[Rfam]
RNA sequence: UUGUAAGAUGCAAUAUUUAUGAUUAUAUUCCACAACACGGUCGUGGUUUGAUUAUAUCAUUGUAUUUGUUUACAUGCAAUCUAAAGAACCUGGCAAAGUUGCCCAGGUUCUUUUUCAA
Numbered sequence: 001u002u003g004u005a006a007g008a009u010g011c012a013a014u015a016u017u018u019a020u021g022a023u024u025a026u027a028u029u030c031c032a033c034a035a036c037a038c039g040g041u042c043g044u045g046g047u048u049u050g051a052u053u054a055u056a057u058c059a060u061u062g063u064a065u066u067u068g069u070u071u072a073c074a075u076g077c078a079a080u081c082u083a084a085a086g087a088a089c090c091u092g093g094c095a096a097a098g099u100u101g102c103c104c105a106g107g108u109u110c111u112u113u114u115u116c117a118a
Base pairs, nucleotide, nucleotide: 035071037069038068039065042062043061083113084112085111086110087109088108089107090106091105092104093103
This 118-nucleotide sequence from Paenibacillus sp. YN15 belongs to the Rfam family "Bacillus sRNA ncr1015". NCBI's taxonomy places the organism under Bacteria, Bacillati, Bacillota, Bacilli, Paenibacillus. For this family Rfam cites "Identification of regulatory RNAs in Bacillus subtilis" (Irnov et al., Nucleic Acids Res, 2010). A search with the family's covariance model found it, with a score of 89 bits.